The record is a 219-nucleotide sequence from Pseudomonas brassicacearum, which matches "PhrS" in Rfam.

RNA sequence: UUGAACCCAUCGCAACAGGGGCAAGACCAGGAGGCCAGUCAUGUUUUUCGAUAAUGUGGUGUUUGCCGGGGUGUUGACGGUCGGCCUCAUGGUCGUGUUUUUCGCAGGCUUUGGAUUAUUCAUCUGGAAAGACGCGCACAAGCGGAAAAAACCGUAGGUCUUUCCGGCUACAACGAGCACGCAAGGCAUUUUGGGCGACUUCGGUCGCCCUUUUUUUUG
Dot-bracket structure: .........(.((..........................................(((.....)))................((((....)))).........)).).....................................................................((.(....))).....(((((((....))))))).........
Lineage of the source: Bacteria > Pseudomonadati > Pseudomonadales > Pseudomonadaceae > Pseudomonas brassicacearum subsp. brassicacearum. By type it is a small RNA.